[Rfam]
RNA sequence: CACUUAUCCAGAAAGGCGGAGGGUCUGGCCCUACGAUGCCUUAGCAACCUUUCCUGAAUUGCAAGUCAGGAAAAAGGUGCUAAUUCCUGCCCCGGUGUACCGGGGAAAGAUAAGUU
Numbered sequence: 001c002a003c004u005u006a007u008c009c010a011g012a013a014a015g016g017c018g019g020a021g022g023g024u025c026u027g028g029c030c031c032u033a034c035g036a037u038g039c040c041u042u043a044g045c046a047a048c049c050u051u052u053c054c055u056g057a058a059u060u061g062c063a064a065g066u067c068a069g070g071a072a073a074a075a076g077g078u079g080c081u082a083a084u085u086c087c088u089g090c091c092c093c094g095g096u097g098u099a100c101c102g103g104g105g106a107a108a109g110a111u112a113a114g115u116u
Stems, first nucleotide, its partner, number of pairs: 002115007013042005021031003025089001027087002043081004048077002050073008085108001090105006
A member of the RNA family "SAM riboswitch aptamer (S box leader)" from Chitinophaga jiangningensis, 116 nucleotides long. From the family's description: The SAM riboswitch is found upstream of a number of genes which code for proteins involved in methionine or cysteine biosynthesis in Gram-positive bacteria. It scores 92 bits against the family's covariance model.